[Rfam]
Nucleotides: 090
Stems, first nucleotide, its partner, number of pairs: 009080001011078003018072008034056003
Number, partner (000 for none) and nucleotide at each position: 001000c002000u003000a004000g005000c006000u007000g008000c009080u010000u011078g012077g013076c014000u015000u016000u017000g018072a019071g020070a021069a022068c023067u024066g025065a026000a027000u028000u029000c030000c031000a032000u033000a034056g035055g036054c037000u038000u039000u040000g041000g042000a043000a044000a045000c046000u047000u048000u049000g050000a051000a052000a053000c054036g055035c056034c057000c058000c059000g060000u061000g062000g063000a064000u065025u066024c067023a068022g069021u070020u071019c072018u073000a074000c075000a076013g077012c078011u079000a080009g081000a082000c083000a084000g085000c086000a087000a088000c089000u090000a